The family of this 44-nucleotide RNA sequence from Bacillus sp. FJAT-49736 is "Ribosomal protein L19 leader". Taxonomically the source falls in Bacillus (Bacteria, Bacillota, Caryophanales, Bacillaceae). About the family: This family is a putative r-protein leader autoregulatory structure found in B. subtilis and other low-GC Gram-positive bacteria. Rfam links the family to the GO term regulation of gene expression. It is annotated as a cis-regulatory leader.
[Rfam]
RNA sequence: ACGAUGUUCCGCUGCAACCAUUUGAGAACUUGUAUGAGCAUCUG
Number, nucleotide and partner (000 for none) at each position: 001a000002c000003g042004a041005u040006g039007u038008u037009c036010c000011g000012c000013u034014g033015c032016a031017a030018c000019c000020a000021u000022u000023u000024g000025a000026g000027a000028a000029c000030u017031u016032g015033u014034a013035u000036g009037a008038g007039c006040a005041u004042c003043u000044g000